[Rfam]
RNA: Xanthomonadaceae sRNA sX15
Organism: Chiayiivirga flava
RNA sequence: GCCGAGAGACUCACGCCAAGCCCUGCCUUAUCGGUGCGAAACGAGUUCAGGCAACUGUUCGGGCGUUCGUGAGGUCCGGCCAGCCUCCCAGGCUCAUCCACGGUCGCAAGACCCAGGGUCUAUCGGGUGGGCUGGCCGGCUCUCGGCACCUC
Numbered sequence: 001g002c003c004g005a006g007a008g009a010c011u012c013a014c015g016c017c018a019a020g021c022c023c024u025g026c027c028u029u030a031u032c033g034g035u036g037c038g039a040a041a042c043g044a045g046u047u048c049a050g051g052c053a054a055c056u057g058u059u060c061g062g063g064c065g066u067u068c069g070u071g072a073g074g075u076c077c078g079g080c081c082a083g084c085c086u087c088c089c090a091g092g093c094u095c096a097u098c099c100a101c102g103g104u105c106g107c108a109a110g111a112c113c114c115a116g117g118g119u120c121u122a123u124c125g126g127g128u129g130g131g132c133u134g135g136c137c138g139g140c141u142c143u144c145g146g147c148a149c150c151u152c
Stems, first nucleotide, its partner, number of pairs: 001147008010073005015064001017063001020060001023057001025055001035050001038048003076139010087127003102113004